[Rfam]
Source information:
A member of the RNA family "DUF805 RNA" from Sunxiuqinia dokdonensis, 66 nucleotides long. The family is grouped with related families in Rfam's "DUF805 clan". It scores 62 bits against the family's covariance model. The source organism's lineage runs through Bacteria, Bacteroidia, Marinilabiliales, Prolixibacteraceae and Sunxiuqinia.
RNA sequence: UGACGGUGGAGCAGCGACCAUUGCAAAAACGGGCGGAACCGAAAAGCCAAACGAGUAGGGAUACAU
Numbered sequence: 001u002g003a004c005g006g007u008g009g010a011g012c013a014g015c016g017a018c019c020a021u022u023g024c025a026a027a028a029a030c031g032g033g034c035g036g037a038a039c040c041g042a043a044a045a046g047c048c049a050a051a052c053g054a055g056u057a058g059g060g061a062u063a064c065a066u
Base pairs, nucleotide, nucleotide: 006021007020008019009018032048033047034046039060040059